Overview: The family of this 352-nucleotide RNA from Sphaerosporella brunnea is "Nuclear RNase P". Ribonuclease P (RNase P) is a ubiquitous endoribonuclease, found in archaea, bacteria and eukarya as well as chloroplasts and mitochondria. NCBI's taxonomy places the organism under Eukaryota, Dikarya, Pezizales, Pyronemataceae, Sphaerosporella. The match comes from Rfam's covariance-model search (46 bits). By type it is a ribozyme.
RNA sequence: CUCUCAUCAAGGCUGCGUUUCUUUGCUACAUACGGGCCAGACAUUUCGUCUGAGUCAUUUAGCUGCAAAUGGGCAAUUCGGAGGAAUCUUCAGGGUGCUUGCACCCAUCGCACUGGCAAGCUUCGGCUUGUCGGCCGCCCGCGAGGGCCUGGCAUGAUCUCAUGUCUGCAACUGGCAUCAGAAAAAUCAUGGACCCUUGCUCCGUCAAGGUGUUCCAGUGGAAGUCAUUGCGAGGAUUGUGGGUGAUGCCAUCUCAGUGCAAUACGCAGCGAUCCCCAUUAAGCCGAUGAGAUACUGUCAAAGGUAUCUCGGAGGUGGGGGAGAAACUCGAUUCCGAUUACUCUGAUGGGAG
Numbered sequence: 001c002u003c004u005c006a007u008c009a010a011g012g013c014u015g016c017g018u019u020u021c022u023u024u025g026c027u028a029c030a031u032a033c034g035g036g037c038c039a040g041a042c043a044u045u046u047c048g049u050c051u052g053a054g055u056c057a058u059u060u061a062g063c064u065g066c067a068a069a070u071g072g073g074c075a076a077u078u079c080g081g082a083g084g085a086a087u088c089u090u091c092a093g094g095g096u097g098c099u100u101g102c103a104c105c106c107a108u109c110g111c112a113c114u115g116g117c118a119a120g121c122u123u124c125g126g127c128u129u130g131u132c133g134g135c136c137g138c139c140c141g142c143g144a145g146g147g148c149c150u151g152g153c154a155u156g157a158u159c160u161c162a163u164g165u166c167u168g169c170a171a172c173u174g175g176c177a178u179c180a181g182a183a184a185a186a187u188c189a190u191g192g193a194c195c196c197u198u199g200c201u202c203c204g205u206c207a208a209g210g211u212g213u214u215c216c217a218g219u220g221g222a223a224g225u226c227a228u229u230g231c232g233a234g235g236a237u238u239g240u241g242g243g244u245g246a247u248g249c250c251a252u253c254u255c256a257g258u259g260c261a262a263u264a265c266g267c268a269g270c271g272a273u274c275c276c277c278a279u280u281a282a283g284c285c286g287a288u289g290a291g292a293u294a295c296u297g298u299c300a301a302a303g304g305u306a307u308c309u310c311g312g313a314g315g316u317g318g319g320g321g322a323g324a325a326a327c328u329c330g331a332u333u334c335c336g337a338u339u340a341c342u343c344u345g346a347u348g349g350g351a352g
Base pairs, nucleotide, nucleotide: 001352002351003350004349007346008345009344012270013269014268015267016266017265018264022069023068024067025066035056036055037054038052039051040050041049042048079336080335081334082333083332085238086237087236088235137148138147139146140145151166152165153164154163155162168231169230170229171228173227174226190217191216192215273322274321275320276319277318